Source information
Fluoride riboswitch aptamer (crcB RNA motif): an 81-nucleotide sequence from Gluconobacter morbifer. The family's consensus secondary structure is taken from published work. The match comes from Rfam's covariance-model search (35 bits).
RNA sequence: UUUUGUAGUGGCAAUGGACUCUGCCUGACCUCAUUACGUCGAACCGCGAUCCUUCGGGGCGCUGAUGAUUCCUACCUCGCA
Numbered sequence: 001u002u003u004u005g006u007a008g009u010g011g012c013a014a015u016g017g018a019c020u021c022u023g024c025c026u027g028a029c030c031u032c033a034u035u036a037c038g039u040c041g042a043a044c045c046g047c048g049a050u051c052c053u054u055c056g057g058g059g060c061g062c063u064g065a066u067g068a069u070u071c072c073u074a075c076c077u078c079g080c081a
Stems, first nucleotide, its partner, number of pairs: 010025004016072003020068002046062003